[Rfam]
RNA sequence: GUCGCGGCUGGCUCUGAUUCGCUUGGUGCAGCUCGGGAAUGCCUCGACUCUUGCUUGGUCGGCGGUUCCCGCCUUGCAUCAAUUGAACCGGAGCCCGUCGCGACG
Numbered sequence: 001g002u003c004g005c006g007g008c009u010g011g012c013u014c015u016g017a018u019u020c021g022c023u024u025g026g027u028g029c030a031g032c033u034c035g036g037g038a039a040u041g042c043c044u045c046g047a048c049u050c051u052u053g054c055u056u057g058g059u060c061g062g063c064g065g066u067u068c069c070c071g072c073c074u075u076g077c078a079u080c081a082a083u084u085g086a087a088c089c090g091g092a093g094c095c096c097g098u099c100g101c102g103a104c105g
Stems, first nucleotide, its partner, number of pairs: 013092002018087003023082009034071007